[Rfam]
RNA sequence: UCUGGAUAAACGUGUAUUCAUCCAAGAGAAUGAAGCAAGUCACUUUACGGAAUUAUACCAAGUCACACAUUUUAGGAUUGAUAAAGACUUACAUAUAAGUGAAAUCUUUAAAUGUUAGGAUAAUCGUAUGUCCUUUAACAUAUUUUAUGUUAUAAAAAUAAUCUUGAAUAACUUUAGUUAUUUUUCAAGUUACGAUUGU
Numbered sequence: 001u002c003u004g005g006a007u008a009a010a011c012g013u014g015u016a017u018u019c020a021u022c023c024a025a026g027a028g029a030a031u032g033a034a035g036c037a038a039g040u041c042a043c044u045u046u047a048c049g050g051a052a053u054u055a056u057a058c059c060a061a062g063u064c065a066c067a068c069a070u071u072u073u074a075g076g077a078u079u080g081a082u083a084a085a086g087a088c089u090u091a092c093a094u095a096u097a098a099g100u101g102a103a104a105u106c107u108u109u110a111a112a113u114g115u116u117a118g119g120a121u122a123a124u125c126g127u128a129u130g131u132c133c134u135u136u137a138a139c140a141u142a143u144u145u146u147a148u149g150u151u152a153u154a155a156a157a158a159u160a161a162u163c164u165u166g167a168a169u170a171a172c173u174u175u176a177g178u179u180a181u182u183u184u185u186c187a188a189g190u191u192a193c194g195a196u197u198g199u
Base pairs, nucleotide, nucleotide: 001051002050003049004048006046008044010040011039013037014036015035017034018033019032020031021030022028068114069113070112071111073110074109075107076106077105078104079103087100088099090097117134118133119132120131121130123196124195125194126193127192128191129158136152137151138150139149140148163189164188165187166186167185168184
RNA: IS605-orfB-I RNA